Rfam assigns this 64-nucleotide RNA sequence from Comamonas aquatica to the family "Xanthine riboswitch aptamer (NMT1 RNA)".
Pairs were carried over by alignment from the consensus structure, which is taken from published work.
The organism belongs to Comamonas aquatica, within Bacteria.
Its family is annotated with purine nucleobase binding in the Gene Ontology.
RNA sequence: GCUUCGAGUAGAAGCGUUCAGCGCAUCACGGCUUGGGCCGUGCCGCCCGGAAAUUGCUCACCCC
Numbered sequence: 001g002c003u004u005c006g007a008g009u010a011g012a013a014g015c016g017u018u019c020a021g022c023g024c025a026u027c028a029c030g031g032c033u034u035g036g037g038c039c040g041u042g043c044c045g046c047c048c049g050g051a052a053a054u055u056g057c058u059c060a061c062c063c064c
Stems, first nucleotide, its partner, number of pairs: 006059005015049001018051002021046003024042003